[Rfam]
RNA: c-di-AMP riboswitch aptamer (ydaO/yuaA leader)
Organism: Anaerolinea thermolimosa
RNA sequence: CAUAAAAAAGCGCCGAAUCUGCGGAGCGGGGGAUUUUCCUUCUGGGGCGAAUCCAGGCCAGAAAUCCUGUAGAGCCAGUCUUCGGUUCGAGCCCGUCAACUAACCUCGCAGGCGUUGAAGACAAUGGGU
Numbered sequence: 001c002a003u004a005a006a007a008a009a010g011c012g013c014c015g016a017a018u019c020u021g022c023g024g025a026g027c028g029g030g031g032g033a034u035u036u037u038c039c040u041u042c043u044g045g046g047g048c049g050a051a052u053c054c055a056g057g058c059c060a061g062a063a064a065u066c067c068u069g070u071a072g073a074g075c076c077a078g079u080c081u082u083c084g085g086u087u088c089g090a091g092c093c094c095g096u097c098a099a100c101u102a103a104c105c106u107c108g109c110a111g112g113c114g115u116u117g118a119a120g121a122c123a124a125u126g127g128g129u
Stems, first nucleotide, its partner, number of pairs: 011114004018025002026109006036044001045094003054069004072088004
Dot-bracket structure: ..........((((...((....))((((((....(.......)(((......((((........))))..((((.........))))...))).........)))))).))))...............